[Rfam]
RNA sequence: AACAGAAAAGGGGAGACAACUCUGUGUCUCCUGCGUUUAGAAGAACAUUGAGGUAUAGCAAAAAUCAAUGGCCGAGAUAUCAUUUUGGUCGUUGUCUUUUUUUAUUGGCGAUUCAAUUGUUGCUCGUCCACAU
Numbered sequence: 001a002a003c004a005g006a007a008a009a010g011g012g013g014a015g016a017c018a019a020c021u022c023u024g025u026g027u028c029u030c031c032u033g034c035g036u037u038u039a040g041a042a043g044a045a046c047a048u049u050g051a052g053g054u055a056u057a058g059c060a061a062a063a064a065u066c067a068a069u070g071g072c073c074g075a076g077a078u079a080u081c082a083u084u085u086u087g088g089u090c091g092u093u094g095u096c097u098u099u100u101u102u103u104a105u106u107g108g109c110g111a112u113u114c115a116a117u118u119g120u121u122g123c124u125c126g127u128c129c130a131c132a133u
Base pairs, nucleotide, nucleotide: 006038007037008036010034013030014029015028016027017026018025070129071128073126074125075124076123079117080116088112089111090110091109092108093107094106